[Rfam]
RNA sequence: GCUUUCCUUGUUAAGGAGUCAGAGAGCUGUUCAGUGAAUGCAUAGUGAGAGCAGCCCUGCUAACACCAUGACAACACAUAAGCAUCACCUGGAUACUUUUCCAUGGUAUGAUGCAAUUUUUGGGGAA
Numbered sequence: 001g002c003u004u005u006c007c008u009u010g011u012u013a014a015g016g017a018g019u020c021a022g023a024g025a026g027c028u029g030u031u032c033a034g035u036g037a038a039u040g041c042a043u044a045g046u047g048a049g050a051g052c053a054g055c056c057c058u059g060c061u062a063a064c065a066c067c068a069u070g071a072c073a074a075c076a077c078a079u080a081a082g083c084a085u086c087a088c089c090u091g092g093a094u095a096c097u098u099u100u101c102c103a104u105g106g107u108a109u110g111a112u113g114c115a116a117u118u119u120u121u122g123g124g125g126a127a
Base pairs, nucleotide, nucleotide: 006018008016009015023058024057026055027054028053029052030051031050032049038046039045082114083113084112085111086110087109088105090103091102092101093100
RNA: U4atac minor spliceosomal RNA